A member of the RNA family "Selenocysteine transfer RNA" from Caldanaerobacter subterraneus, 91 nucleotides long. Pairs were carried over by alignment from the consensus structure, which is taken from published work. The organism belongs to Caldanaerobacter subterraneus subsp. tengcongensis, within Bacteria.
RNA sequence: GGGAGUAGAUAGGCGCUGGUGUGCCUCCUAGACUUCAAAUCUACGGUCUCGCUAUUUAAGCGAGAGGUGGGUUCGAUUCCCACAUACUCCC
Numbered sequence: 001g002g003g004a005g006u007a008g009a010u011a012g013g014c015g016c017u018g019g020u021g022u023g024c025c026u027c028c029u030a031g032a033c034u035u036c037a038a039a040u041c042u043a044c045g046g047u048c049u050c051g052c053u054a055u056u057u058a059a060g061c062g063a064g065a066g067g068u069g070g071g072u073u074c075g076a077u078u079c080c081c082a083c084a085u086a087c088u089c090c091c
Stems, first nucleotide, its partner, number of pairs: 001091007008083001011026006027045001029043004047065005068082004